[Rfam]
RNA sequence: AGCUUUGCGCAGUGGCAGUAUCGUAGCCAAUGAGGUUUAUUUGAGGCGCGAUUAUUGCUAAUUGAAAGAGAUGUAAUAGCAAAUGGUGACAUUUGAUUGUCGUUAGUGAAUAAUAGUGGAAAUUCUGGGGCUGAGGUAGCUUG
Numbered sequence: 001a002g003c004u005u006u007g008c009g010c011a012g013u014g015g016c017a018g019u020a021u022c023g024u025a026g027c028c029a030a031u032g033a034g035g036u037u038u039a040u041u042u043g044a045g046g047c048g049c050g051a052u053u054a055u056u057g058c059u060a061a062u063u064g065a066a067a068g069a070g071a072u073g074u075a076a077u078a079g080c081a082a083a084u085g086g087u088g089a090c091a092u093u094u095g096a097u098u099g100u101c102g103u104u105a106g107u108g109a110a111u112a113a114u115a116g117u118g119g120a121a122a123u124u125c126u127g128g129g130g131c132u133g134a135g136g137u138a139g140c141u142u143g
Stems, first nucleotide, its partner, number of pairs: 020052005026047003034042002090118002092115001094113001096111003101106001132143004
A member of the RNA family "U4 spliceosomal RNA" from Enhydra lutris, 143 nucleotides long. For this family Rfam cites "The uRNA database" (Zwieb, Nucleic Acids Res, 1997). Gene Ontology terms of the family: spliceosomal tri-snRNP complex assembly and U4 snRNP. Rfam describes the family as follows. U4 small nuclear RNA (U4 snRNA) is a component of the major U2-dependent spliceosome. The match comes from Rfam's covariance-model search (68 bits).